[Rfam]
RNA sequence: CCCGCCACUGUGCCGGUAUGUCUGUGACCGAGCUUAGUCCAGUGGAGGCUCAGAGUGACCCGGCUUUAGGAAACAGGGCGGACCUCGCCCGUGGCUCGCUCUGUGCCGUAAAGCACGGAACAAAA
Number, nucleotide and partner (000 for none) at each position: 001c000002c000003c000004g000005c045006c044007a043008c042009u041010g040011u000012g000013c000014c000015g000016g000017u000018a000019u031020g000021u000022c000023u027024g000025u000026g000027a023028c000029c000030g000031a019032g000033c000034u000035u000036a000037g000038u000039c000040c010041a009042g008043u007044g006045g005046a000047g000048g000049c000050u000051c000052a000053g000054a000055g000056u000057g000058a000059c000060c118061c117062g116063g000064c113065u112066u111067u110068a000069g107070g106071a000072a000073a000074c103075a102076g101077g100078g099079c098080g000081g000082a000083c094084c093085u000086c000087g000088c000089c000090c000091g000092u000093g084094g083095c000096u000097c000098g079099c078100u077101c076102u075103g074104u000105g000106c070107c069108g000109u000110a067111a066112a065113g064114c000115a000116c062117g061118g060119a000120a000121c000122a000123a000124a000125a000
RNA: Small nucleolar RNA SNORA65
Organism: Gouania willdenowi